Annotation
The family of this 112-nucleotide sequence from Gossypium australe is "MIR5225 microRNA precursor family". Rfam 15.1 lists 63 matches to the family in 47 species. Its family is annotated with RISC complex and miRNA-mediated post-transcriptional gene silencing in the Gene Ontology. Taxonomically the source falls in Gossypium (Eukaryota, Spermatophyta, Mesangiospermae, Malvales).
RNA sequence: GAGAGGGACUCCUGUCGCAGGAGAGAUGGCGCCUACUACCAUCAAAGAGCCAUUGUUGUUCCAUUAUUGAGUUGGUAAGCUUCAUCUCUCCUCGACUGAAGUCCUUUUCAAU
Numbered sequence: 001g002a003g004a005g006g007g008a009c010u011c012c013u014g015u016c017g018c019a020g021g022a023g024a025g026a027u028g029g030c031g032c033c034u035a036c037u038a039c040c041a042u043c044a045a046a047g048a049g050c051c052a053u054u055g056u057u058g059u060u061c062c063a064u065u066a067u068u069g070a071g072u073u074g075g076u077a078a079g080c081u082u083c084a085u086c087u088c089u090c091c092u093c094g095a096c097u098g099a100a101g102u103c104c105u106u107u108u109c110a111a112u
Stems, first nucleotide, its partner, number of pairs: 005104003009101002012098001014096004019092003023088007